The record is an 88-nucleotide sequence from Cuscuta australis, which matches "Small nucleolar RNA R38" in Rfam. snoR38 is a C/D box small nucleolar RNA conserved across yeast, human, Arabidopsis and rice. It is encoded in the intron of elongation factor-1 gamma in both pombe and cerevisiae. snoR38 guides the methylation of 2'-O-ribose sites in 28S rRNA. A search with the family's covariance model found it, with a score of 62 bits. For this family Rfam cites "Antisense snoRNAs: a family of nucleolar RNAs with long complementarities to rRNA" (Bachellerie et al., Trends Biochem Sci, 1995). The source organism's lineage runs through Eukaryota, Viridiplantae, Embryophyta, Euphyllophyta and Cuscuta sect. Cleistogrammica. The family's RNA type in Rfam is C/D-box small nucleolar RNA.

[Rfam]
RNA sequence: UUCAUCGGGUGAUGAUAAAUUGAAUUAUACAGUUAUCCCUGUCUGAUGCUUCCAUCUGCUGAGAAUUCAUCUCAAAUCUGACGAUGAA
Numbered sequence: 001u002u003c004a005u006c007g008g009g010u011g012a013u014g015a016u017a018a019a020u021u022g023a024a025u026u027a028u029a030c031a032g033u034u035a036u037c038c039c040u041g042u043c044u045g046a047u048g049c050u051u052c053c054a055u056c057u058g059c060u061g062a063g064a065a066u067u068c069a070u071c072u073c074a075a076a077u078c079u080g081a082c083g084a085u086g087a088a
Stems, first nucleotide, its partner, number of pairs: 001088007